[Rfam]
RNA sequence: GGAAGGUUGGCGAAGGACGUACCGCUCGCCAAUCGGGUCAGGUCCGGAAGGAAGCAGCCCUAACGAGACAGGGCGGGUCUUUGUCCAACCUUCCACC
Numbered sequence: 001g002g003a004a005g006g007u008u009g010g011c012g013a014a015g016g017a018c019g020u021a022c023c024g025c026u027c028g029c030c031a032a033u034c035g036g037g038u039c040a041g042g043u044c045c046g047g048a049a050g051g052a053a054g055c056a057g058c059c060c061u062a063a064c065g066a067g068a069c070a071g072g073g074c075g076g077g078u079c080u081u082u083g084u085c086c087a088a089c090c091u092u093c094c095a096c097c
Base pairs, nucleotide, nucleotide: 004091005090006089007088008087009084011083012082013081014080018075019074020073022071025067026066027065028064035060036059037058038057043052044051045050

The family of this 97-nucleotide RNA from Roseiarcus fermentans is "Bacterial small signal recognition particle RNA". It scores 56 bits against the family's covariance model. The literature on the family includes a 2003 paper in Nucleic Acids Res by Rosenblad et al., "SRPDB: Signal Recognition Particle Database". About the family: The signal recognition particle (SRP) is a universally conserved ribonucleoprotein involved in the co-translational targeting of proteins to membranes. The family's consensus secondary structure is taken from published work. Clan: SRP clan.